[Rfam]
RNA sequence: GCCGGUGCUUGAUGAUAGAUCCGGGGAAGGAGUUUCCAGAACCGGGCGGUGCCCGUGCAUUGCAAGGCGCGGCGCCGUUUACAUA
Numbered sequence: 001g002c003c004g005g006u007g008c009u010u011g012a013u014g015a016u017a018g019a020u021c022c023g024g025g026g027a028a029g030g031a032g033u034u035u036c037c038a039g040a041a042c043c044g045g046g047c048g049g050u051g052c053c054c055g056u057g058c059a060u061u062g063c064a065a066g067g068c069g070c071g072g073c074g075c076c077g078u079u080u081a082c083a084u085a
Stems, first nucleotide, its partner, number of pairs: 022044003045079009055070004
The family of this 85-nucleotide RNA sequence is "COG2827 RNA". By type it is a small RNA. It is one of the family's seed sequences.